This 78-nucleotide RNA sequence from Rhinopithecus roxellana belongs to the Rfam family "mir-548 microRNA precursor family". Rfam 15.1 lists 3,009 matches to the family in 27 species. Rfam links the family to the GO terms miRNA-mediated post-transcriptional gene silencing and RISC complex. Taxonomically the source falls in Rhinopithecus (Eukaryota, Euteleostomi, Sarcopterygii, Cercopithecoidea).
[Rfam]
RNA sequence: UAUUAGGUUGGUGCAAAAGUCAUUGCGGUUUUUGCCAUUAAUGGCAAAAACCGCAAUGACUUUUGCACCAACUUAAUA
Numbered sequence: 001u002a003u004u005a006g007g008u009u010g011g012u013g014c015a016a017a018a019g020u021c022a023u024u025g026c027g028g029u030u031u032u033u034g035c036c037a038u039u040a041a042u043g044g045c046a047a048a049a050a051c052c053g054c055a056a057u058g059a060c061u062u063u064u065g066c067a068c069c070a071a072c073u074u075a076a077u078a
Base pairs, nucleotide, nucleotide: 001078002077003076004075005074006073007072008071009070010069011068012067013066014065015064016063017062018061019060020059021058022057023056024055025054026053027052028051029050030049031048032047033046034045035044036043037042